[Rfam]
RNA sequence: CACUUUAAAAAAUUGGCCGUUUAGGCCUAGGGCUGGUGACUUUUGGGUCACCAGCCU
Numbered sequence: 001c002a003c004u005u006u007a008a009a010a011a012a013u014u015g016g017c018c019g020u021u022u023a024g025g026c027c028u029a030g031g032g033c034u035g036g037u038g039a040c041u042u043u044u045g046g047g048u049c050a051c052c053a054g055c056c057u
Stems, first nucleotide, its partner, number of pairs: 015027004031056010
RNA: Pseudomonas sRNA P26
Organism: Pseudidiomarina taiwanensis